Description
Rfam assigns this 101-nucleotide RNA from Paenibacillus sp. N3.4 to the family "Glycine riboswitch aptamer". Rfam's curators write: This family represents the bacterial glycine riboswitch. It scores 73 bits against the family's covariance model. NCBI's taxonomy places the organism under Bacteria, Bacillati, Bacillota, Caryophanales, Paenibacillus.
RNA sequence: AUGAUGGUACAGGGAGAGACCGCAGAGCAAGCUCGCGGCGCCGAAGGAGUAAGCCCCAAGAGGUGGGUGAAUCUCUCAGGCAAAAGGACCUGUAUCGGACG
Number, nucleotide and partner (000 for none) at each position: 001a000002u000003g000004a000005u000006g096007g095008u094009a093010c092011a091012g090013g089014g000015a000016g000017a000018g000019a000020c038021c037022g036023c035024a000025g000026a000027g000028c000029a000030a000031g000032c000033u000034c000035g023036c022037g021038g020039c000040g081041c080042c079043g077044a076045a000046g000047g075048a074049g073050u000051a000052a000053g068054c067055c066056c065057c000058a000059a000060g000061a000062g000063g000064u000065g056066g055067g054068u053069g000070a000071a000072u000073c049074u048075c047076u044077c043078a000079g042080g041081c040082a000083a000084a000085a000086g000087g000088a000089c013090c012091u011092g010093u009094a008095u007096c006097g000098g000099a000100c000101g000